[Rfam]
RNA sequence: GGGGGCGUUACGGAUUCGACAGGCAUAGUUCGGGCCUGAAUUGCGCUUCGUAGGUUACGUCUACGUUAAAACGUUACAGUUAAAUAUAACUGCAAAAACAAACAAUUCUUACGCUUUAGCUGCCUAAAAAACAGCGGGCGUGAUCCGCUAAGCAUCGCCCAUGUGCUUUUCCCGGGUCUUAUUCUAAGUGGGAUACGUAAUCAAAUUCCGUCUGUUUUUGAUUAAAGAGAUUGUCAGACUAGUUUGUUAAGGGGCCUGUCACUCGGCAUCUUCUCAAAUGAACUUUAAAUAGAACUGACUAUGAGCGUAGAUUUUUGGGUGGCGAUAUGUUUGGACGUGGGUUCGACUCCCACCGCCUCCAUAC
Numbered sequence: 001g002g003g004g005g006c007g008u009u010a011c012g013g014a015u016u017c018g019a020c021a022g023g024c025a026u027a028g029u030u031c032g033g034g035c036c037u038g039a040a041u042u043g044c045g046c047u048u049c050g051u052a053g054g055u056u057a058c059g060u061c062u063a064c065g066u067u068a069a070a071a072c073g074u075u076a077c078a079g080u081u082a083a084a085u086a087u088a089a090c091u092g093c094a095a096a097a098a099c100a101a102a103c104a105a106u107u108c109u110u111a112c113g114c115u116u117u118a119g120c121u122g123c124c125u126a127a128a129a130a131a132c133a134g135c136g137g138g139c140g141u142g143a144u145c146c147g148c149u150a151a152g153c154a155u156c157g158c159c160c161a162u163g164u165g166c167u168u169u170u171c172c173c174g175g176g177u178c179u180u181a182u183u184c185u186a187a188g189u190g191g192g193a194u195a196c197g198u199a200a201u202c203a204a205a206u207u208c209c210g211u212c213u214g215u216u217u218u219u220g221a222u223u224a225a226a227g228a229g230a231u232u233g234u235c236a237g238a239c240u241a242g243u244u245u246g247u248u249a250a251g252g253g254g255c256c257u258g259u260c261a262c263u264c265g266g267c268a269u270c271u272u273c274u275c276a277a278a279u280g281a282a283c284u285u286u287a288a289a290u291a292g293a294a295c296u297g298a299c300u301a302u303g304a305g306c307g308u309a310g311a312u313u314u315u316u317g318g319g320u321g322g323c324g325a326u327a328u329g330u331u332u333g334g335a336c337g338u339g340g341g342u343u344c345g346a347c348u349c350c351c352a353c354c355g356c357c358u359c360c361a362u363a364c
Base pairs, nucleotide, nucleotide: 001360002359003358004357005356006355007354020333021332022331023330024329025328026327027326029324034320035319036318037317038316039315040314044307045306046305047304048303049065050064051063052062053061054077055076057074058073059072060071116138117137119135120134121133122132142178143177144176145175146174147173150168151167152166153165154164155163158192159191160190161189162188198224199223200222201221202220203219204218205217210240213237242279243278244277245276246275249272250271251270254267255266256265258299259298260297261296263293264292337353338352339351340350341349
A member of the RNA family "transfer-messenger RNA" from Enterococcus cecorum, 364 nucleotides long.
NCBI's taxonomy places the organism under Bacteria, Bacillota, Bacilli, Enterococcus, Enterococcus cecorum.
The match comes from Rfam's covariance-model search (206 bits).
Rfam's curators write: Bacterial tmRNA, also known as 10Sa RNA or SsrA, is named for its dual tRNA and mRNA-like properties. Its role is to liberate the mRNA from a stalled ribosome. To accomplish this part of the tmRNA is used as a reading frame that ends in a translation stop signal. The broken mRNA is replaced in the ribosome by the tmRNA and translation of the tmRNA leads to addition of a proteolysis tag to the incomplete protein enabling recognition by a protease.
The family's consensus secondary structure is taken from published work.